[Rfam]
Rfam assigns this 76-nucleotide RNA from Hydra vulgaris to the family "mir-3003 microRNA precursor family".
Rfam links the family to the GO terms RISC complex and miRNA-mediated post-transcriptional gene silencing.
Pairs were carried over by alignment from the consensus structure, which was predicted with RNAalifold.
Rfam's curators put it in the seed alignment.
RNA sequence: UGCUAUUUAUAUCAUUACCAGUGUGCACAUUUAACAUUAUUGUUAAAUGUGCGAACUGGUAAUGAAAUAAAUACUG
Numbered sequence: 001u002g003c004u005a006u007u008u009a010u011a012u013c014a015u016u017a018c019c020a021g022u023g024u025g026c027a028c029a030u031u032u033a034a035c036a037u038u039a040u041u042g043u044u045a046a047a048u049g050u051g052c053g054a055a056c057u058g059g060u061a062a063u064g065a066a067a068u069a070a071a072u073a074c075u076g
Base pairs, nucleotide, nucleotide: 004073005072006071007070008069009068010067012065013064014063015062016061017060018059019058020057024053025052026051027050028049029048030047031046032045033044034043035042036041